[Rfam]
RNA sequence: UACUUCCUGCCCUGUAUGGCUUUUUAUUCCUAUCUGACUGUGCUGAGUAUUCAUAUAGGGAUGGAAGCCAUGCAGGGCGCGAAGUC
Numbered sequence: 001u002a003c004u005u006c007c008u009g010c011c012c013u014g015u016a017u018g019g020c021u022u023u024u025u026a027u028u029c030c031u032a033u034c035u036g037a038c039u040g041u042g043c044u045g046a047g048u049a050u051u052c053a054u055a056u057a058g059g060g061a062u063g064g065a066a067g068c069c070a071u072g073c074a075g076g077g078c079g080c081g082a083a084g085u086c
Stems, first nucleotide, its partner, number of pairs: 002085005008079016026062008035053003

Overview
Shown here is an 86-nucleotide RNA sequence from Chanos chanos, a member of the family "mir-135 microRNA precursor family". Pairs were carried over by alignment from the consensus structure, which was predicted with PFOLD. Gene Ontology terms of the family: gene silencing by miRNA and RISC complex.